[Rfam]
RNA: glycine-GGAnGA riboswitch aptamer
RNA sequence: CCGGCUAACGAUUACUCUAGACAUCGGUGAAUUCACCGGGGCCGAAGAAGCAAAACCUGGAAAGGCAUCUUUUUCAGGAAGAAACUGACAGGCAAAAGGAAGGUAAUCUCACGGAACUCUGGAGAGCAUGGAAUCAUUCCAUCGCCUACGUGGCUAUAACCAACUGGCAAAAGGACAGAGGG
Numbered sequence: 001c002c003g004g005c006u007a008a009c010g011a012u013u014a015c016u017c018u019a020g021a022c023a024u025c026g027g028u029g030a031a032u033u034c035a036c037c038g039g040g041g042c043c044g045a046a047g048a049a050g051c052a053a054a055a056c057c058u059g060g061a062a063a064g065g066c067a068u069c070u071u072u073u074u075c076a077g078g079a080a081g082a083a084a085c086u087g088a089c090a091g092g093c094a095a096a097a098g099g100a101a102g103g104u105a106a107u108c109u110c111a112c113g114g115a116a117c118u119c120u121g122g123a124g125a126g127c128a129u130g131g132a133a134u135c136a137u138u139c140c141a142u143c144g145c146c147u148a149c150g151u152g153g154c155u156a157u158a159a160c161c162a163a164c165u166g167g168c169a170a171a172a173g174g175a176c177a178g179a180g181g182g
Stems, first nucleotide, its partner, number of pairs: 001114003010108007022040001024039006041093003047089001049086002056078009117180005126143001128142004144168003150164001152161002